Source information
Shown here is a 130-nucleotide RNA sequence from Calypte anna, a member of the family "Small nucleolar RNA SNORA25".
RNA sequence: AGGUCACUUCAAAGAGGGCUCGUGUGGCUGAAACACCAGCGGCUCUUAACGCGGUGACCGCAUAGUGAAAUCCUCUGCAGGAUGCUGUGGACACUCGGUGUGUGCUAUGGUCUAUUAAUGAGGAGAUAAA
Numbered sequence: 001a002g003g004u005c006a007c008u009u010c011a012a013a014g015a016g017g018g019c020u021c022g023u024g025u026g027g028c029u030g031a032a033a034c035a036c037c038a039g040c041g042g043c044u045c046u047u048a049a050c051g052c053g054g055u056g057a058c059c060g061c062a063u064a065g066u067g068a069a070a071u072c073c074u075c076u077g078c079a080g081g082a083u084g085c086u087g088u089g090g091a092c093a094c095u096c097g098g099u100g101u102g103u104g105c106u107a108u109g110g111u112c113u114a115u116u117a118a119u120g121a122g123g124a125g126a127u128a129a130a
Stems, first nucleotide, its partner, number of pairs: 002059006014047007023039001026037002072123004079116002082113001087108004092104003095100001
ACA25 is a member of the H/ACA class of snoRNA that guide the sites of modification of uridines to pseudouridines. The source organism's lineage runs through Eukaryota, Sauria, Archosauria, Trochilidae and Calypte. The family's RNA type in Rfam is H/ACA-box small nucleolar RNA. The family's consensus secondary structure was predicted with RNAfold.